Rfam assigns this 86-nucleotide sequence from Leptospirillum sp. Group IV 'UBA BS' to the family "sRNA-Xcc1". Taxonomically the source falls in Leptospirillum sp. Group IV (Bacteria, Nitrospirota, Nitrospiraceae, Leptospirillum). The literature on the family includes a 2011 paper in RNA Biol by Chen et al., "sRNA-Xcc1, an integron-encoded transposon- and plasmid-transferred trans-acting sRNA, is under the positive control of the key virulence regulators HrpG and HrpX of Xanthomonas campestris pathovar campestris". By type it is a small RNA.
RNA sequence: UGCCGGGCGUGCGACGAAUACAAGACCCGCAAGGGAAAUAAGUCCGCCGUGCCUUUGGACGGUAGUUAGCGCCCGGCCCCCAUUCU
Numbered sequence: 001u002g003c004c005g006g007g008c009g010u011g012c013g014a015c016g017a018a019u020a021c022a023a024g025a026c027c028c029g030c031a032a033g034g035g036a037a038a039u040a041a042g043u044c045c046g047c048c049g050u051g052c053c054u055u056u057g058g059a060c061g062g063u064a065g066u067u068a069g070c071g072c073c074c075g076g077c078c079c080c081c082a083u084u085c086u
Base pairs, nucleotide, nucleotide: 002077003076004075005074006073007072008071009070013044014043015042017039026035027034028033046063047062048061049060050059